[Rfam]
RNA sequence: UAUGGUCUUCAGGGUUAGGUGAAAUUCCUUAUCGGCGGUGAUGGUGGCUCAGCCACAUAAGCCCGCGAGCCGCAAGGUAGGAUGCUGGUGCGAAUCCAGAGCCGACGGUUAAAGUCCGGAUGGAAGAAGAUCGAU
Numbered sequence: 001u002a003u004g005g006u007c008u009u010c011a012g013g014g015u016u017a018g019g020u021g022a023a024a025u026u027c028c029u030u031a032u033c034g035g036c037g038g039u040g041a042u043g044g045u046g047g048c049u050c051a052g053c054c055a056c057a058u059a060a061g062c063c064c065g066c067g068a069g070c071c072g073c074a075a076g077g078u079a080g081g082a083u084g085c086u087g088g089u090g091c092g093a094a095u096c097c098a099g100a101g102c103c104g105a106c107g108g109u110u111a112a113a114g115u116c117c118g119g120a121u122g123g124a125a126g127a128a129g130a131u132c133g134a135u
Stems, first nucleotide, its partner, number of pairs: 003133008017029003031115002033104002035066004061102002070081002085099004106118003